[Rfam]
Shown here is a 139-nucleotide RNA from Bradyrhizobium sp. Leo170, a member of the family "Group II catalytic intron D1-D4-4".

RNA sequence: UCCCUGGUGGAAACCCAGGCCGGCUAACUCUCGCUCCAGCCGGAAGUAUUCGGGGCGGGUCAGGAGGCGACGAAUGACCUGAAGCACUCCGAAAAUGAGCCCUUUCGAGGGUCGACGGUCCGCGCGGGCCGCAACGUGA
Numbered sequence: 001u002c003c004c005u006g007g008u009g010g011a012a013a014c015c016c017a018g019g020c021c022g023g024c025u026a027a028c029u030c031u032c033g034c035u036c037c038a039g040c041c042g043g044a045a046g047u048a049u050u051c052g053g054g055g056c057g058g059g060u061c062a063g064g065a066g067g068c069g070a071c072g073a074a075u076g077a078c079c080u081g082a083a084g085c086a087c088u089c090c091g092a093a094a095a096u097g098a099g100c101c102c103u104u105u106c107g108a109g110g111g112u113c114g115a116c117g118g119u120c121c122g123c124g125c126g127g128g129c130c131g132c133a134a135c136g137u138g139a
Base pairs, nucleotide, nucleotide: 020043021042022041023040024039052089053088054087056081057080058079059078060077061076066071097113098112100111101110102109103108116131117130
The literature on the family includes a 2001 paper in EMBO J by Chu et al., "Control of branch-site choice by a group II intron". About the family: Group II introns are found in rRNA, tRNA and mRNA of organelles in fungi, plants and protists, and also in mRNA in bacteria. NCBI's taxonomy places the organism under Bacteria, Pseudomonadati, Pseudomonadota, Hyphomicrobiales, Bradyrhizobium. The pairing is the family consensus, mapped onto this sequence.